[Rfam]
RNA sequence: GGCCAGGAAGCUGUGAUGUUUUUUCUUCCAAGCACAUAUCUGACUGCGGUGUGUGGAAAGCCAACGAUUACUGAGGUUUCUGGCC
Numbered sequence: 001g002g003c004c005a006g007g008a009a010g011c012u013g014u015g016a017u018g019u020u021u022u023u024u025c026u027u028c029c030a031a032g033c034a035c036a037u038a039u040c041u042g043a044c045u046g047c048g049g050u051g052u053g054u055g056g057a058a059a060g061c062c063a064a065c066g067a068u069u070a071c072u073g074a075g076g077u078u079u080c081u082g083g084c085c
Stems, first nucleotide, its partner, number of pairs: 001085006008078002011075001
Small nucleolar RNA SNORD121A: an 85-nucleotide sequence from Sphenodon punctatus. The literature on the family includes a 2006 paper in Nucleic Acids Res by Yang et al., "snoSeeker: an advanced computational package for screening of guide and orphan snoRNA genes in the human genome". By type it is a C/D-box small nucleolar RNA. The base pairs follow the family's consensus structure, which was predicted with WAR.